[Rfam]
Source information: A member of the RNA family "T-box leader" from Bacillus sp. MUM 13, 225 nucleotides long. Taxonomically the source falls in Bacillus (Bacteria, Bacillati, Bacillota, Bacilli). Rfam links the family to the GO term tRNA binding. About the family: Uncharged tRNA acts as the effector for transcription antitermination of genes in the T-box leader family. T-boxes are found upstream of many aminoacyl-tRNA synthetase genes and some amino acid biosynthetic genes usually in Gram-positive bacteria. The anticodon of a specific tRNA base pairs to a specifier sequence within the T-box motif, and the NCCA acceptor tail of the tRNA base pairs to a conserved bulge in the T-box antiterminator hairpin. A search with the family's covariance model found it, with a score of 99 bits.
RNA sequence: AAUGAAACGUUAAAGAAGGAUUAGUAAAAUAUAAGGUGCCUAUUACAGAGAGGGAAUUAUACAGCUGAAAUAUUCCUGAGGAACCCAUUUGAACCUGCCUUCUGAGUUCUGCUUCGGGCCUUAUGGCGAAGAGGCAGCGGUUAAAUCCGUUAUCCUUCUUAAGAGCAUGAAACACUGCGGUGUUUUUUGAAUAAGGGUGGUACCGCCAAAGCCUUGGUCCCUUUC
Numbered sequence: 001a002a003u004g005a006a007a008c009g010u011u012a013a014a015g016a017a018g019g020a021u022u023a024g025u026a027a028a029a030u031a032u033a034a035g036g037u038g039c040c041u042a043u044u045a046c047a048g049a050g051a052g053g054g055a056a057u058u059a060u061a062c063a064g065c066u067g068a069a070a071u072a073u074u075c076c077u078g079a080g081g082a083a084c085c086c087a088u089u090u091g092a093a094c095c096u097g098c099c100u101u102c103u104g105a106g107u108u109c110u111g112c113u114u115c116g117g118g119c120c121u122u123a124u125g126g127c128g129a130a131g132a133g134g135c136a137g138c139g140g141u142u143a144a145a146u147c148c149g150u151u152a153u154c155c156u157u158c159u160u161a162a163g164a165g166c167a168u169g170a171a172a173c174a175c176u177g178c179g180g181u182g183u184u185u186u187u188u189g190a191a192u193a194a195g196g197g198u199g200g201u202a203c204c205g206c207c208a209a210a211g212c213c214u215u216g217g218u219c220c221c222u223u224u225c
Stems, first nucleotide, its partner, number of pairs: 007107002015102004027090004040080002043078001052077006110136006138149003166189002169186006194222004205218005